[Rfam]
RNA sequence: CAAUAUUCAGCAGCAGUGCCUGGUUAAUAUUG
Numbered sequence: 001c002a003a004u005a006u007u008c009a010g011c012a013g014c015a016g017u018g019c020c021u022g023g024u025u026a027a028u029a030u031u032g
Base pairs, nucleotide, nucleotide: 001032002031003030004029005028006027007026009025010024011023012021013020014018
A member of the RNA family "Iron response element II" from Microcaecilia unicolor, 32 nucleotides long.
Its family is annotated with response to iron ion in the Gene Ontology.
The source organism's lineage runs through Eukaryota, Euteleostomi, Dipnotetrapodomorpha, Tetrapoda and Microcaecilia.
The family's RNA type in Rfam is cis-regulatory element.
IRE, TFRC, SLC40A1, SDHB, SLC11A2, CDC42BPA, ACO2, ALAS2_H.SAPIENS, CDC14A, EPAS1, ALAS2, qoxD, Hao1, NDUFS1, transferrin, Aconitate.
It scores 31 bits against the family's covariance model.